[Rfam]
RNA: ZMP/ZTP riboswitch aptamer (pfl RNA motif)
Organism: Amedibacterium intestinale
RNA sequence: AAACAGUUAUACAACUGACGGAAGUAGAAUUGACUACAUGGAGUAUAAUUAUAACAAGAGCCGACCGUCUAGGCAUUUCAU
Numbered sequence: 001a002a003a004c005a006g007u008u009a010u011a012c013a014a015c016u017g018a019c020g021g022a023a024g025u026a027g028a029a030u031u032g033a034c035u036a037c038a039u040g041g042a043g044u045a046u047a048a049u050u051a052u053a054a055c056a057a058g059a060g061c062c063g064a065c066c067g068u069c070u071a072g073g074c075a076u077u078u079c080a081u
Stems, first nucleotide, its partner, number of pairs: 003052001005050008015040001017069005024037004058076001060074003